This 282-nucleotide RNA sequence from Fusarium falciforme belongs to the Rfam family "A. fumigatus sRNA Afu_309". Rfam classes the family as a small RNA. It scores 138 bits against the family's covariance model. On this family, see Jochl et al., Nucleic Acids Res 2008: "Small ncRNA transcriptome analysis from Aspergillus fumigatus suggests a novel mechanism for regulation of protein synthesis".
[Rfam]
RNA sequence: UUUCCUUCUACAAUCACGGAUCUGUGCCCAGCGAUCCUCUUCUCCUCGGAGUUAGGGUCGAUUGCUGUGCAGCUCGAUAAUUCUAGGGAGCCAUCAACUUGCUAUGGUGUCAAUCAUCCUAUCGACAGGUCCAAGAGUAAACGGGUGCUUCUGGCUGCUUCAUUCGCUGUCGCAAGACGGCUUGAGUGACUCGGCCGCUGCAUCCGAGACGCUAUAUUCCACCCCCCUUUUCCGAGGCCGUCGGUCGGUGAGGUUGGGGAAAACCAUGGUCUGCCUACAUAC
Dot-bracket structure: .................((((((((((.(((.((((((((.(((....)))..))))..)))).))).)).......(.((.....((.(((.............))).)).........)).)))))))))...........(.......((((......((((((((((....))))))..))))......)))).....)....(.((((((........((((....((..((((...)))).....))..))))......)))))..).).......